The record is a 76-nucleotide RNA from Branchiostoma floridae, which matches "mir-4872 microRNA precursor family" in Rfam. The family has 4 seed sequences and 72 matches in Rfam 15.1. The base pairs follow the family's consensus structure, which was predicted with RNAalifold.
RNA sequence: CCAGAUGUGGUGCCGGGGUAACUGAAACUCUGAGUUUUCCCUUUUUCAGAGUUUUGUUACCCCGGCUCUCUGUGGG
Number, nucleotide and partner (000 for none) at each position: 001c076002c075003a000004g000005a073006u072007g071008u000009g069010g068011u000012g066013c065014c064015g063016g062017g061018g000019u059020a058021a057022c056023u000024g055025a054026a053027a052028c051029u050030c049031u048032g047033a046034g044035u000036u000037u000038u000039c000040c000041c000042u000043u000044u034045u000046u033047c032048a031049g030050a029051g028052u027053u026054u025055u024056g022057u021058u020059a019060c000061c017062c016063c015064g014065g013066c012067u000068c010069u009070c000071u007072g006073u005074g000075g002076g001